This 83-nucleotide RNA sequence from Clupea harengus belongs to the Rfam family "mir-22 microRNA precursor family". A search with the family's covariance model found it, with a score of 59 bits. For this family Rfam cites "Identification of novel genes coding for small expressed RNAs" (Lagos-Quintana et al., Science, 2001). The family's consensus secondary structure was predicted with RNAalifold. NCBI's taxonomy places the organism under Eukaryota, Actinopterygii, Actinopteri, Otomorpha, Clupea.
[Rfam]
Nucleotides: 083
Base pairs, nucleotide, nucleotide: 005080006079007078010075011074012073017068018067019066020065021064022063026058027057028056031054032053033052034051035050
Number, partner (000 for none) and nucleotide at each position: 001000g002000g003000c004000u005080g006079c007078u008000c009000c010075a011074c012073g013000g014000c015000a016000g017068u018067u019066c020065u021064u022063c023000a024000c025000u026058g027057g028056c029000a030000u031054g032053c033052u034051u035050u036000a037000c038000a039000g040000a041000g042000u043000a044000c045000g046000a047000g048000c049000g050035g051034a052033a053032g054031c055000u056028g057027c058026c059000a060000g061000c062000u063022g064021a065020a066019g067018a068017a069000c070000u071000g072000u073012u074011g075010u076000u077000g078007g079006g080005c081000c082000g083000c